[Rfam]
RNA sequence: GCGGCACCCUAGGGGGGUCCCGACAAGGGGCUGAGAGUCUGAUGGCACGGCGGCCGCGACGGCCACGGGCAGCGCAGUGACCCUUUGAACCUGAUCCGGAUCAUGCCGGCGAAGGGACAGGACCGCAGUGCUUUC
Numbered sequence: 001g002c003g004g005c006a007c008c009c010u011a012g013g014g015g016g017g018u019c020c021c022g023a024c025a026a027g028g029g030g031c032u033g034a035g036a037g038u039c040u041g042a043u044g045g046c047a048c049g050g051c052g053g054c055c056g057c058g059a060c061g062g063c064c065a066c067g068g069g070c071a072g073c074g075c076a077g078u079g080a081c082c083c084u085u086u087g088a089a090c091c092u093g094a095u096c097c098g099g100a101u102c103a104u105g106c107c108g109g110c111g112a113a114g115g116g117a118c119a120g121g122a123c124c125g126c127a128g129u130g131c132u133u134u135c
Stems, first nucleotide, its partner, number of pairs: 008121003011084004016078001017031005039077003090115003096109004
Dot-bracket structure: .......(((((((.((((((.....))))).......(((.................................))))..)))).....(((...((((......))))...)))...)))..............

The family of this 135-nucleotide RNA from Salipiger abyssi is "TPP riboswitch aptamer (THI element)".
Gene Ontology term of the family: thiamine pyrophosphate binding.
Taxonomically the source falls in Salipiger (Bacteria, Pseudomonadati, Alphaproteobacteria, Roseobacteraceae).
The match comes from Rfam's covariance-model search (60 bits).